[Rfam]
RNA sequence: GUAAGCCUUUGGGGCAAGGUGAAAAAGAGCGAUCUUUUAACUCCUUACCGGCGGUGAUUAGCCCGCGAGCCGUAUGGCUGAUCCGGUGGAAUUCCGGAGCCGACAGUAUAGUCUGGAUGGAAAAAGGUGAUG
Numbered sequence: 001g002u003a004a005g006c007c008u009u010u011g012g013g014g015c016a017a018g019g020u021g022a023a024a025a026a027g028a029g030c031g032a033u034c035u036u037u038u039a040a041c042u043c044c045u046u047a048c049c050g051g052c053g054g055u056g057a058u059u060a061g062c063c064c065g066c067g068a069g070c071c072g073u074a075u076g077g078c079u080g081a082u083c084c085g086g087u088g089g090a091a092u093u094c095c096g097g098a099g100c101c102g103a104c105a106g107u108a109u110a111g112u113c114u115g116g117a118u119g120g121a122a123a124a125a126g127g128u129g130a131u132g
Stems, first nucleotide, its partner, number of pairs: 005128006017045003047112002049102002051066004061100002069078003082098005104115003
Rfam assigns this 132-nucleotide RNA sequence from Pelosinus fermentans to the family "FMN riboswitch aptamer (RFN element)". A search with the family's covariance model found it, with a score of 101 bits. Lineage of the source: Bacteria > Bacillati > Negativicutes > Pelosinus > Pelosinus fermentans. From the family's description: The RFN element is a highly conserved domain that is found frequently in the 5'-untranslated regions of prokaryotic mRNAs that encode for flavin mononucleotide (FMN) biosynthesis and transport proteins. This element is a metabolite-dependent riboswitch that directly binds FMN in the absence of proteins. On this family, see Wilt et al., J Struct Biol X 2020: "FMN riboswitch aptamer symmetry facilitates conformational switching through mutually exclusive coaxial stacking configurations". The family's consensus secondary structure is taken from published work.